[Rfam]
RNA: small nucleolar RNA snoR143
RNA sequence: CGGCACUUGUUGGGUUUGAUUAGAGGAAGCGAUUUUGGUUUGCUUUCUCGUGGAGACCAAUAGUGCUUACAGUGAAUGCCUGAUUCCCACCGUUUUGGUGAGAGUUGGGCAGCGGCCAGACAACCAUAGUGAUGGUAUCCACAGAUGGCGGGUUCAUUCUGUCCCGUUUUUCUACUGAUUCCAUCUCACAUUU
Numbered sequence: 001c002g003g004c005a006c007u008u009g010u011u012g013g014g015u016u017u018g019a020u021u022a023g024a025g026g027a028a029g030c031g032a033u034u035u036u037g038g039u040u041u042g043c044u045u046u047c048u049c050g051u052g053g054a055g056a057c058c059a060a061u062a063g064u065g066c067u068u069a070c071a072g073u074g075a076a077u078g079c080c081u082g083a084u085u086c087c088c089a090c091c092g093u094u095u096u097g098g099u100g101a102g103a104g105u106u107g108g109g110c111a112g113c114g115g116c117c118a119g120a121c122a123a124c125c126a127u128a129g130u131g132a133u134g135g136u137a138u139c140c141a142c143a144g145a146u147g148g149c150g151g152g153u154u155c156a157u158u159c160u161g162u163c164c165c166g167u168u169u170u171u172c173u174a175c176u177g178a179u180u181c182c183a184u185c186u187c188a189c190a191u192u193u
Base pairs, nucleotide, nucleotide: 002067003066004065005064006063011059012058013057015055016054017053019051020050022048023047024046027045028044029043030042031041129187131185132184133183134182135181137180147168148167149166150165151164152163